[Rfam]
RNA sequence: AUUAAUAAUCAAGGGUCGGGCACCCAACAAAUUAAU
Numbered sequence: 001a002u003u004a005a006u007a008a009u010c011a012a013g014g015g016u017c018g019g020g021c022a023c024c025c026a027a028c029a030a031a032u033u034a035a036u
Stems, first nucleotide, its partner, number of pairs: 001036006013025004
This 36-nucleotide RNA from Croceivirga radicis belongs to the Rfam family "S16-Flavobacteria ribosomal protein leader". The organism belongs to Croceivirga, within Bacteria.